Bacterial small signal recognition particle RNA: a 97-nucleotide RNA from Rhodomicrobium vannielii.
The match comes from Rfam's covariance-model search (57 bits).
RNA sequence: GGGAGGUUGGCGCAGGCGUAUCGCUCGCCAACCGGGUCAGGUCCGGAAGGAAGCAGCCCUAACGAAUCCGAUGCGGGUUGCUGUCCAGCCUCUCACU
Numbered sequence: 001g002g003g004a005g006g007u008u009g010g011c012g013c014a015g016g017c018g019u020a021u022c023g024c025u026c027g028c029c030a031a032c033c034g035g036g037u038c039a040g041g042u043c044c045g046g047a048a049g050g051a052a053g054c055a056g057c058c059c060u061a062a063c064g065a066a067u068c069c070g071a072u073g074c075g076g077g078u079u080g081c082u083g084u085c086c087a088g089c090c091u092c093u094c095a096c097u
Stems, first nucleotide, its partner, number of pairs: 004091005009084001012081003017075006023067001025065003034059004042051003

The literature on the family includes a 2003 paper in Nucleic Acids Res by Rosenblad et al., "SRPDB: Signal Recognition Particle Database". Pairs were carried over by alignment from the consensus structure, which is taken from published work. About the family: The signal recognition particle (SRP) is a universally conserved ribonucleoprotein involved in the co-translational targeting of proteins to membranes. The source organism's lineage runs through Bacteria, Pseudomonadati, Alphaproteobacteria, Rhodomicrobium and Rhodomicrobium vannielii. The family's RNA type in Rfam is non-coding RNA gene.